Rfam assigns this 84-nucleotide sequence from Strongylocentrotus purpuratus to the family "mir-2012 microRNA precursor family".
RNA sequence: UGGGUUCUUGAUAGUACUGGCAUAUGGACAUUGUUGUAAUAAUCUUACUCUCAAUGUUCAUCUGUCCGUACUGCCAAGUGCCUG
Numbered sequence: 001u002g003g004g005u006u007c008u009u010g011a012u013a014g015u016a017c018u019g020g021c022a023u024a025u026g027g028a029c030a031u032u033g034u035u036g037u038a039a040u041a042a043u044c045u046u047a048c049u050c051u052c053a054a055u056g057u058u059c060a061u062c063u064g065u066c067c068g069u070a071c072u073g074c075c076a077a078g079u080g081c082c083u084g
Stems, first nucleotide, its partner, number of pairs: 001084005007078004012073006019066004024061010